[Rfam]
This 84-nucleotide sequence belongs to the Rfam family "Streptomyces RNA 6106".

RNA sequence: ACGCCGCCCCGGCGGCGUUCGAGCUCCUCUAGGGGCCUGAAAGGCGGGGAUGGUGCCGUGUCGGCGCAGCACCAUCCCCGCGCA
Numbered sequence: 001a002c003g004c005c006g007c008c009c010c011g012g013c014g015g016c017g018u019u020c021g022a023g024c025u026c027c028u029c030u031a032g033g034g035g036c037c038u039g040a041a042a043g044g045c046g047g048g049g050a051u052g053g054u055g056c057c058g059u060g061u062c063g064g065c066g067c068a069g070c071a072c073c074a075u076c077c078c079c080g081c082g083c084a
Stems, first nucleotide, its partner, number of pairs: 001018007019042001023038001025035003044081013058067003
Rfam describes the family as follows. Identified by deep sequencing of transcriptome at the end of exponential growth phase. Appears smaller on northern blot than sequencing transcript. This indicates processing step. Streptomyces specific.